[Rfam]
RNA sequence: UUUCUAUGAAAGACAUGGGUAGUGAGAUGUUGAUUCUUGAUUUGUCACCUUACUAGUCUGUCUUUCCAAAGAAU
Numbered sequence: 001u002u003u004c005u006a007u008g009a010a011a012g013a014c015a016u017g018g019g020u021a022g023u024g025a026g027a028u029g030u031u032g033a034u035u036c037u038u039g040a041u042u043u044g045u046c047a048c049c050u051u052a053c054u055a056g057u058c059u060g061u062c063u064u065u066c067c068a069a070a071g072a073a074u
Stems, first nucleotide, its partner, number of pairs: 008066008017058002021054006028047002

The record is a 74-nucleotide RNA from Rotaria magnacalcarata, which matches "mir-71 microRNA precursor family" in Rfam. Rfam 15.1 lists 372 matches to the family in 291 species. Gene Ontology terms of the family: RISC complex and miRNA-mediated post-transcriptional gene silencing. The family's consensus secondary structure was predicted with RNAalifold.